[Rfam]
About this RNA: This 84-nucleotide RNA from Lymphocryptovirus macacinegamma10 belongs to the Rfam family "mir-BART12 microRNA precursor family". The source organism's lineage runs through Viruses, Duplodnaviria, Heunggongvirae, Herpesvirales and Lymphocryptovirus macacinegamma10. Rfam 15.1 lists 6 matches to the family in 3 species. On this family, see Cai et al., PLoS Pathog 2006: "Epstein-Barr virus microRNAs are evolutionarily conserved and differentially expressed". The family's consensus secondary structure was predicted with RNAalifold.
RNA sequence: CUGGUGUCCUGACACCCACCCUUCACGACCGGGCAGAAUUAGCAAGUGUCCUGUAGUGAAUGGGUGUGGUUUUAGUGCACACAG
Numbered sequence: 001c002u003g004g005u006g007u008c009c010u011g012a013c014a015c016c017c018a019c020c021c022u023u024c025a026c027g028a029c030c031g032g033g034c035a036g037a038a039u040u041a042g043c044a045a046g047u048g049u050c051c052u053g054u055a056g057u058g059a060a061u062g063g064g065u066g067u068g069g070u071u072u073u074a075g076u077g078c079a080c081a082c083a084g
Stems, first nucleotide, its partner, number of pairs: 001084003004080003009075004014070003017066005024058003028054002031051005